[Rfam]
RNA sequence: GCACCCUGUGAUUAUAAAAAGACGCGUUAUUCUGAGGGAUUCCACUGGUUGACAGUUUCUUUCUUUCCAUCUUACUGUUUUUUUUCUUCCUUUGCUUUACCUCCUCUCUAUGCUGUUCCUCCUAUCCCUCAAUCUUUAACUGCCAGCCAGUCCGCUGAUUGCGAUUAUGAGAUAUGAGGGUGU
Numbered sequence: 001g002c003a004c005c006c007u008g009u010g011a012u013u014a015u016a017a018a019a020a021g022a023c024g025c026g027u028u029a030u031u032c033u034g035a036g037g038g039a040u041u042c043c044a045c046u047g048g049u050u051g052a053c054a055g056u057u058u059c060u061u062u063c064u065u066u067c068c069a070u071c072u073u074a075c076u077g078u079u080u081u082u083u084u085u086c087u088u089c090c091u092u093u094g095c096u097u098u099a100c101c102u103c104c105u106c107u108c109u110a111u112g113c114u115g116u117u118c119c120u121c122c123u124a125u126c127c128c129u130c131a132a133u134c135u136u137u138a139a140c141u142g143c144c145a146g147c148c149a150g151u152c153c154g155c156u157g158a159u160u161g162c163g164a165u166u167a168u169g170a171g172a173u174a175u176g177a178g179g180g181u182g183u
Base pairs, nucleotide, nucleotide: 001183002182003181004180005179006178035091036090037089038088

Shown here is a 183-nucleotide RNA sequence from Danio rerio, a member of the family "Small nucleolar RNA SNORD97". Rfam 15.1 lists 639 matches to the family in 614 species. By type it is a C/D-box small nucleolar RNA. Rfam links the family to the GO terms nucleolus and RNA processing. NCBI's taxonomy places the organism under Eukaryota, Craniata, Teleostomi, Danionidae, Danio.